Shown here is an 88-nucleotide RNA sequence from Polaribacter sp. KT25b, a member of the family "Flavo-1 RNA".
RNA sequence: GUUGCGUUAAGGAUUGAAACGGCAUCCUUUUUAUUUUUUGACUGAUAAGAAAAAAAAUAAAAAGAUAUAGUGGAAAGCCUGUUAAAAC
Numbered sequence: 001g002u003u004g005c006g007u008u009a010a011g012g013a014u015u016g017a018a019a020c021g022g023c024a025u026c027c028u029u030u031u032u033a034u035u036u037u038u039u040g041a042c043u044g045a046u047a048a049g050a051a052a053a054a055a056a057a058u059a060a061a062a063a064g065a066u067a068u069a070g071u072g073g074a075a076a077g078c079c080u081g082u083u084a085a086a087a088c
Stems, first nucleotide, its partner, number of pairs: 010080003014076002019071002024066003030061010
The match comes from Rfam's covariance-model search (56 bits).